Alphaproteobacterial ar15: a 107-nucleotide sequence from Rhizobium sp. Leaf306. Pairs were carried over by alignment from the consensus structure. The family is grouped with related families in Rfam's "suhB sRNA clan".

RNA sequence: AGCCGGAGCAAUUGAUGACGUCCCCGUCAUCAGCGCCGGCUGUUCCCCUCUGGAGGUUUUAGACCUUCACACCUGACGGGCCUCGGAGCAAUCUGGAGGCCCUUUUU
Numbered sequence: 001a002g003c004c005g006g007a008g009c010a011a012u013u014g015a016u017g018a019c020g021u022c023c024c025c026g027u028c029a030u031c032a033g034c035g036c037c038g039g040c041u042g043u044u045c046c047c048c049u050c051u052g053g054a055g056g057u058u059u060u061a062g063a064c065c066u067u068c069a070c071a072c073c074u075g076a077c078g079g080g081c082c083u084c085g086g087a088g089c090a091a092u093c094u095g096g097a098g099g100c101c102c103u104u105u106u107u
Stems, first nucleotide, its partner, number of pairs: 001041005008034002051069007078102006084095004